[Rfam]
RNA sequence: UGAAAGUGUUGCGCUGCAGCCACCGAGGUGCAAGCUUGCUUGCAAACUCGGGUGGAUAUAGCGCAACCUGAUGUGUAUGAGGAAAAAAGCUAUGCGAAUGAAAUGAGCAGAGCGAUUUCCGAAUGCACAUCCAGGAUUGCGAGAGCACGAAGUGCAAAGCAAUCCGUACUUUCU
Numbered sequence: 001u002g003a004a005a006g007u008g009u010u011g012c013g014c015u016g017c018a019g020c021c022a023c024c025g026a027g028g029u030g031c032a033a034g035c036u037u038g039c040u041u042g043c044a045a046a047c048u049c050g051g052g053u054g055g056a057u058a059u060a061g062c063g064c065a066a067c068c069u070g071a072u073g074u075g076u077a078u079g080a081g082g083a084a085a086a087a088a089g090c091u092a093u094g095c096g097a098a099u100g101a102a103a104u105g106a107g108c109a110g111a112g113c114g115a116u117u118u119c120c121g122a123a124u125g126c127a128c129a130u131c132c133a134g135g136a137u138u139g140c141g142a143g144a145g146c147a148c149g150a151a152g153u154g155c156a157a158a159g160c161a162a163u164c165c166g167u168a169c170u171u172u173c174u
Stems, first nucleotide, its partner, number of pairs: 002173006008067004014061003018057001020055004024050004029045001030043005071130008081120004089113003093109003134165007145155004
This 174-nucleotide sequence from Oribacterium sp. C9 belongs to the Rfam family "Clostridiales-1 RNA".
Rfam classes the family as a small RNA.